The record is a 79-nucleotide sequence from Alligator sinensis, which matches "Mammalian CPEB3 ribozyme" in Rfam. Taxonomically the source falls in Alligator (Eukaryota, Deuterostomia, Sarcopterygii, Archosauria). It scores 40 bits against the family's covariance model. The base pairs follow the family's consensus structure, which is taken from published work.
RNA sequence: AGAGGUCACAAAUUUGAGUCCAUAGCAGAAGUAUUCAUGGCAUAGCCUGUCAGAUUCCAACAAAUCUGCAAAUUUUGCU
Number, nucleotide and partner (000 for none) at each position: 001a000002g000003a000004g000005g000006u000007c000008a000009c000010a000011a000012a000013u000014u000015u000016g047017a000018g000019u000020c045021c000022a000023u000024a079025g078026c077027a076028g075029a074030a073031g043032u042033a000034u000035u000036c000037a000038u000039g000040g000041c000042a032043u031044a000045g020046c000047c016048u000049g000050u000051c068052a067053g066054a065055u064056u063057c000058c000059a000060a000061c000062a000063a056064a055065u054066c053067u052068g051069c000070a000071a000072a000073u030074u029075u028076u027077g026078c025079u024